This 76-nucleotide RNA sequence from Alligator sinensis belongs to the Rfam family "Mammalian CPEB3 ribozyme". Lineage of the source: Eukaryota > Opisthokonta > Archelosauria > Archosauria > Alligator. From the family's description: The mammalian CPEB3 ribozyme is a self cleaving RNA located in the second intron of the CPEB3 gene which belongs to a family of genes regulating messenger RNA polyadenylation. A search with the family's covariance model found it, with a score of 38 bits.
RNA sequence: AUUGCAAGUUCAAGGUCAUAGCAGAAGUGUUCCCUGCGCGGCCCUGUCAAAUUCCCAUGAAUCGGUGAGUUCUGCU
Numbered sequence: 001a002u003u004g005c006a007a008g009u010u011c012a013a014g015g016u017c018a019u020a021g022c023a024g025a026a027g028u029g030u031u032c033c034c035u036g037c038g039c040g041g042c043c044c045u046g047u048c049a050a051a052u053u054c055c056c057a058u059g060a061a062u063c064g065g066u067g068a069g070u071u072c073u074g075c076u
Base pairs, nucleotide, nucleotide: 014043015042016041017040020076021075022074023073024072025071026070027039028038029037048065051062052061053060054059